[Rfam]
RNA: DUF3800-VII RNA
Organism: Pseudochrobactrum sp. AO18b
RNA sequence: GGCAGCCAAGCGCCGGAUAACCCAAAGCAUUCGAAAGAUUGCAGGCGAGAGAUCGCAAUUAUGGGCCGGGGGGCUGCUUUUUU
Numbered sequence: 001g002g003c004a005g006c007c008a009a010g011c012g013c014c015g016g017a018u019a020a021c022c023c024a025a026a027g028c029a030u031u032c033g034a035a036a037g038a039u040u041g042c043a044g045g046c047g048a049g050a051g052a053u054c055g056c057a058a059u060u061a062u063g064g065g066c067c068g069g070g071g072g073g074c075u076g077c078u079u080u081u082u083u
Stems, first nucleotide, its partner, number of pairs: 001078007011070001013069004022065002025062001027042003031038002046055003